[Rfam]
RNA sequence: AACUGCCAUAAUGGCCACAGCAGAAGCGCUCACAUCGUACCCUGUCAGAUUCUAACGGAUCUGCAAAUUCUACU
Numbered sequence: 001a002a003c004u005g006c007c008a009u010a011a012u013g014g015c016c017a018c019a020g021c022a023g024a025a026g027c028g029c030u031c032a033c034a035u036c037g038u039a040c041c042c043u044g045u046c047a048g049a050u051u052c053u054a055a056c057g058g059a060u061c062u063g064c065a066a067a068u069u070c071u072a073c074u
Stems, first nucleotide, its partner, number of pairs: 013042002019074002022071004026038003046063007
RNA: Mammalian CPEB3 ribozyme